RNA sequence: ACCUUAUCAAGAGAGGCUGAGGGAUAGGCCCUUUGAAGCCCAGCAACCACCCAUUUUUGGGAAAAGGUGCUAAUUCCUACAAGACUAUAGUCUUGAGAGAUGAGGU
Numbered sequence: 001a002c003c004u005u006a007u008c009a010a011g012a013g014a015g016g017c018u019g020a021g022g023g024a025u026a027g028g029c030c031c032u033u034u035g036a037a038g039c040c041c042a043g044c045a046a047c048c049a050c051c052c053a054u055u056u057u058u059g060g061g062a063a064a065a066g067g068u069g070c071u072a073a074u075u076c077c078u079a080c081a082a083g084a085c086u087a088u089a090g091u092c093u094u095g096a097g098a099g100a101u102g103a104g105g106u
Stems, first nucleotide, its partner, number of pairs: 001106008013041001015040003021031003025079004042071004047067002051061002075098001080095006
RNA: SAM riboswitch aptamer (S box leader)